[Rfam]
RNA sequence: CGGUGCCAGACGACGAACCCUUUACGGCGGGGGCGGAGGACCCACUCACGGCAGCUUGCUGCCUUGGGGUGAAGACGCACACUCGGCAGCGGCCCUGCGGGCCGGUGACGGGGCUGCGUCCGGGCUUUUUUCCUUGGCCCGAACCCGACAGCUAACUUCGCAGGCGACCUGAAAGGAUAG
Numbered sequence: 001c002g003g004u005g006c007c008a009g010a011c012g013a014c015g016a017a018c019c020c021u022u023u024a025c026g027g028c029g030g031g032g033g034c035g036g037a038g039g040a041c042c043c044a045c046u047c048a049c050g051g052c053a054g055c056u057u058g059c060u061g062c063c064u065u066g067g068g069g070u071g072a073a074g075a076c077g078c079a080c081a082c083u084c085g086g087c088a089g090c091g092g093c094c095c096u097g098c099g100g101g102c103c104g105g106u107g108a109c110g111g112g113g114c115u116g117c118g119u120c121c122g123g124g125c126u127u128u129u130u131u132c133c134u135u136g137g138c139c140c141g142a143a144c145c146c147g148a149c150a151g152c153u154a155a156c157u158u159c160g161c162a163g164g165c166g167a168c169c170u171g172a173a174a175g176g177a178u179a180g
Base pairs, nucleotide, nucleotide: 011166012165014163018032019031020030033161034160035159036158037157038156043066044065067146068145069144075119076118077117078116122140123139124138125137
Dot-bracket structure: ..........((.(...(((.........)))((((((....((....................))(((.....((((.....................................))))..((((...........))))...))).........)))))).).))..............